Shown here is a 147-nucleotide RNA sequence from Agrobacterium sp. AGB01, a member of the family "Rhizobiales sRNA Atu_C7". The match comes from Rfam's covariance-model search (48 bits). Pairs were carried over by alignment from the consensus structure, which was predicted with WAR. A reference for the family is Wilms et al. (2012), "Deep sequencing uncovers numerous small RNAs on all four replicons of the plant pathogen Agrobacterium tumefaciens", RNA Biol.
RNA sequence: CGAUACCCAUCCGUUCGGCAAAUUUCCAAGUUGUUAGCAGCGUUCGAGUUCCCUGGCGUGUCCACAGAACCACAGGUGUCAUCCUCCCUCGCCUCGUGGCGGCAUGCCCGCCUGGCCUCGCUCUUCAUGCGGAGAGCGAGGCUUUUU
Numbered sequence: 001c002g003a004u005a006c007c008c009a010u011c012c013g014u015u016c017g018g019c020a021a022a023u024u025u026c027c028a029a030g031u032u033g034u035u036a037g038c039a040g041c042g043u044u045c046g047a048g049u050u051c052c053c054u055g056g057c058g059u060g061u062c063c064a065c066a067g068a069a070c071c072a073c074a075g076g077u078g079u080c081a082u083c084c085u086c087c088c089u090c091g092c093c094u095c096g097u098g099g100c101g102g103c104a105u106g107c108c109c110g111c112c113u114g115g116c117c118u119c120g121c122u123c124u125u126c127a128u129g130c131g132g133a134g135a136g137c138g139a140g141g142c143u144u145u146u147u
Stems, first nucleotide, its partner, number of pairs: 055108008074094005115142009125132002